This 63-nucleotide RNA sequence from Stegastes partitus belongs to the Rfam family "Selenocysteine insertion sequence 1". For this family Rfam cites "A survey of metazoan selenocysteine insertion sequences" (Lambert et al., Biochimie, 2002).

RNA sequence: CAUCCUUUAUGAAGACAGGCGCAGAAACUAUGCUCUAGUGGUGUCUGUUUGAUGUCAGGCUGG
Numbered sequence: 001c002a003u004c005c006u007u008u009a010u011g012a013a014g015a016c017a018g019g020c021g022c023a024g025a026a027a028c029u030a031u032g033c034u035c036u037a038g039u040g041g042u043g044u045c046u047g048u049u050u051g052a053u054g055u056c057a058g059g060c061u062g063g
Base pairs, nucleotide, nucleotide: 001063005059014049015048016047017046018045019044020043021042022041028038029037030036
Lineage of the source: Eukaryota > Gnathostomata > Euteleosteomorpha > Eurypterygia > Stegastes. Rfam links the family to the GO term selenocysteine incorporation. It scores 37 bits against the family's covariance model. The incorporation of selenocysteine into a protein sequence is directed by an in-frame UGA codon (usually a stop codon) within the coding region of the mRNA. Selenoprotein mRNAs contain a conserved secondary structure in the 3' UTR that is required for the distinction of UGA stop from UGA selenocysteine. The selenocysteine insertion sequence (SECIS) is around 60 nt in length and adopts a hairpin structure which is sufficiently well-defined and conserved to act as a computational screen for selenoprotein genes. It is annotated as a cis-regulatory element.